[Rfam]
RNA sequence: CCUACACCUAUGUGUGUAGGACUUCAAAGGAUCAUCAUUAAAUUUAGCACAGAUCCUUAGAAAAGUUAUCAUAUGAGUGUGAGACUUGACUUUUCUAGAUAUCUGUGUCAAAUUUAAUGGUAAUCCUUUGAAGUCCUGCACACAUGAGUGUGGG
Dot-bracket structure: .((((((.(((((.((((((((((((((.(((.((((((((((((.((((((((..(((((((((((((((((....)))))....))))))))))))..)))))))).)))))))))))).))).)))))))))))))).))))).)))))).
Background:
Shown here is a 154-nucleotide sequence from Amborella trichopoda, a member of the family "MIR8565 microRNA precursor family". Gene Ontology terms of the family: miRNA-mediated post-transcriptional gene silencing and RISC complex. The organism belongs to Amborella, within Eukaryota.